[Rfam]
Annotation
The record is a 189-nucleotide RNA sequence from Ruminococcus sp. CAG:57, which matches "Lysine riboswitch aptamer" in Rfam. Riboswitches are metabolite binding domains within certain messenger RNAs that serve as precision sensors for their corresponding targets. A search with the family's covariance model found it, with a score of 95 bits.
RNA sequence: AGAACAGAUAGAGGUGCAGUUGAAAUGAGUAUCAUUUUUCGUGUGACCCCACACAACAGCGUCCCAACGCCUAUGGUAAAUGAGAAAGGUAAAACUGCCGAAGCGGAGUAUCGGGAACACUCCUGCUGACUGUUAGUUUAAUAGACUAUCAGUUGUCAUCAUUACAAAUGGUGGAGUGCUAUCGGCAUA
Numbered sequence: 001a002g003a004a005c006a007g008a009u010a011g012a013g014g015u016g017c018a019g020u021u022g023a024a025a026u027g028a029g030u031a032u033c034a035u036u037u038u039u040c041g042u043g044u045g046a047c048c049c050c051a052c053a054c055a056a057c058a059g060c061g062u063c064c065c066a067a068c069g070c071c072u073a074u075g076g077u078a079a080a081u082g083a084g085a086a087a088g089g090u091a092a093a094a095c096u097g098c099c100g101a102a103g104c105g106g107a108g109u110a111u112c113g114g115g116a117a118c119a120c121u122c123c124u125g126c127u128g129a130c131u132g133u134u135a136g137u138u139u140a141a142u143a144g145a146c147u148a149u150c151a152g153u154u155g156u157c158a159u160c161a162u163u164a165c166a167a168a169u170g171g172u173g174g175a176g177u178g179c180u181a182u183c184g185g186c187a188u189a
Stems, first nucleotide, its partner, number of pairs: 007183005016098006024090001032083006039076005102127004106122004128154005134148005156174007